[Rfam]
RNA: Small nucleolar RNA SNORD89
Organism: Anabarilius grahami
RNA sequence: GCUGAUGAAAUGAUGUAAACAAAAGGCCGAAUUGUAGCUCUUCCGUCAAGCAGUUUGUUCUCGAUAUGGAUAGAGCUUUGACAAAAACUAGACCGAAGCGUUUAGCUGAUCUGUCAGC
Dot-bracket structure: ...(.((.......(..........((......))((((...((.((.....((.(((((.......)))))..))((.(........).))..)).).)...))))...)...)).)